RNA sequence: UAUCACCCCAAAGGUGUGGCACCUGAGAACACAGGUGGAUUGGCUUGCCUAUCUUUGGCUCAUGGCUAAUGCACUCUGUGUUCUCAGGUCACCCCUUUGGGGCACCC
Numbered sequence: 001u002a003u004c005a006c007c008c009c010a011a012a013g014g015u016g017u018g019g020c021a022c023c024u025g026a027g028a029a030c031a032c033a034g035g036u037g038g039a040u041u042g043g044c045u046u047g048c049c050u051a052u053c054u055u056u057g058g059c060u061c062a063u064g065g066c067u068a069a070u071g072c073a074c075u076c077u078g079u080g081u082u083c084u085c086a087g088g089u090c091a092c093c094c095c096u097u098u099g100g101g102g103c104a105c106c107c
Base pairs, nucleotide, nucleotide: 007101008100011097012096013095014094016092017091018090019089025085026084027083028082029081030080031079032078033077034076

Shown here is a 107-nucleotide RNA sequence from Jatropha curcas, a member of the family "MIR398 microRNA precursor family". The family's consensus secondary structure was predicted with WAR. The family has 14 seed sequences and 627 matches in Rfam 15.1. On this family, see Jones-Rhoades and Bartel, Mol Cell 2004: "Computational identification of plant microRNAs and their targets, including a stress-induced miRNA".